[Rfam]
RNA sequence: AGUAGCAAAAUGAUGAAAGAAAUGUGAGUGAUGACUACUUUGUAGUUUCACGGGAUCAAAAAUCUACUCGCUACGUUCUUUCUGAUUCUUAU
Number, nucleotide and partner (000 for none) at each position: 001a000002g000003u000004a089005g088006c000007a087008a086009a000010a000011u000012g000013a000014u000015g000016a000017a000018a000019g000020a000021a000022a000023u000024g000025u000026g000027a000028g000029u000030g000031a000032u000033g000034a000035c000036u000037a000038c000039u000040u000041u000042g000043u000044a000045g000046u000047u000048u000049c000050a000051c000052g000053g000054g000055a000056u000057c000058a000059a000060a000061a000062a000063u000064c000065u000066a000067c000068u000069c000070g000071c000072u000073a000074c000075g000076u000077u000078c000079u000080u000081u000082c000083u000084g000085a000086u008087u007088c005089u004090u000091a000092u000
Shown here is a 92-nucleotide RNA from Morus notabilis, a member of the family "Small nucleolar RNA R32/R81/Z41". For this family Rfam cites "Identification of 66 box C/D snoRNAs in Arabidopsis thaliana: extensive gene duplications generated multiple isoforms predicting new ribosomal RNA 2'-O-methylation sites" (Barneche et al., J Mol Biol, 2001). Rfam 15.1 lists 238 matches to the family in 139 species. It scores 54 bits against the family's covariance model.